[Rfam]
RNA sequence: GGUCACGAGUGCCAGCGCGAAGCCCCGGCUCGCUGGCCGGCAACCCUCCUCCGCGAUGGGGUGCCCCGGGUGACGACCAGGCGGCUGCCGUCCGGCAGUCCGCAAGCGCGGACC
Dot-bracket structure: ((((....(.((((((....((......)).)))))))(((..(((..(.....)...))).))).........))))..(((((((((....))))).))))...........
Description
Rfam assigns this 114-nucleotide RNA sequence from Geodermatophilus nigrescens to the family "SAM (S-adenosyl methionine) riboswitch aptamer". NCBI's taxonomy places the organism under Bacteria, Bacillati, Actinomycetota, Actinomycetes, Geodermatophilus. SAM-IV is a mRNA element that regulates gene expression via direct sensing of S-adenosylmethionine (SAM or AdoMet). Clan: SAM clan.